The record is a 177-nucleotide RNA from Acetivibrio straminisolvens, which matches "glmS glucosamine-6-phosphate activated ribozyme aptamer" in Rfam.
Rfam links the family to the GO terms catalytic activity and regulation of gene expression.
The source organism's lineage runs through Bacteria, Clostridia, Acetivibrionales, Acetivibrio and Acetivibrio straminisolvens.
The family's RNA type in Rfam is riboswitch.
RNA sequence: AUGCAAUUGAAAGCGCCAGCACGUGUUUUUCCACGUGGACGAGGAGAAGGAGGUCACCGGUAAUUUUAAAAUCGGUGAGUUAUCGAAUUUUCGGCGGAAACCUUCCGGUUGUCACGACCGUUAGGGUCCUACAAAAACUGCGGGCAACUGCAGAACAAAAAGGAUCUAAGUGAAUUU
Numbered sequence: 001a002u003g004c005a006a007u008u009g010a011a012a013g014c015g016c017c018a019g020c021a022c023g024u025g026u027u028u029u030u031c032c033a034c035g036u037g038g039a040c041g042a043g044g045a046g047a048a049g050g051a052g053g054u055c056a057c058c059g060g061u062a063a064u065u066u067u068a069a070a071a072u073c074g075g076u077g078a079g080u081u082a083u084c085g086a087a088u089u090u091u092c093g094g095c096g097g098a099a100a101c102c103u104u105c106c107g108g109u110u111g112u113c114a115c116g117a118c119c120g121u122u123a124g125g126g127u128c129c130u131a132c133a134a135a136a137a138c139u140g141c142g143g144g145c146a147a148c149u150g151c152a153g154a155a156c157a158a159a160a161a162g163g164a165u166c167u168a169a170g171u172g173a174a175u176u177u
Stems, first nucleotide, its partner, number of pairs: 020037006046105005057094004106120006124167007138153006
The family's consensus secondary structure is taken from published work.